[Rfam]
RNA sequence: AGGAAUCCAGCAGGUGUGACAUGAGAACACAUGUGAAAUACAUAAUGAAAUGUUGUGCUUUAUGUUUAUCAUGUGUUCUCAGGUCGCCCCUGUAGGAUUUUC
Numbered sequence: 001a002g003g004a005a006u007c008c009a010g011c012a013g014g015u016g017u018g019a020c021a022u023g024a025g026a027a028c029a030c031a032u033g034u035g036a037a038a039u040a041c042a043u044a045a046u047g048a049a050a051u052g053u054u055g056u057g058c059u060u061u062a063u064g065u066u067u068a069u070c071a072u073g074u075g076u077u078c079u080c081a082g083g084u085c086g087c088c089c090c091u092g093u094a095g096g097a098u099u100u101u102c
Stems, first nucleotide, its partner, number of pairs: 007096002011092004016087004023080010

The record is a 102-nucleotide RNA from Artemisia annua, which matches "MIR398 microRNA precursor family" in Rfam. A search with the family's covariance model found it, with a score of 81 bits. On this family, see Jones-Rhoades and Bartel, Mol Cell 2004: "Computational identification of plant microRNAs and their targets, including a stress-induced miRNA". Lineage of the source: Eukaryota > Magnoliopsida > Gunneridae > Anthemideae > Artemisia.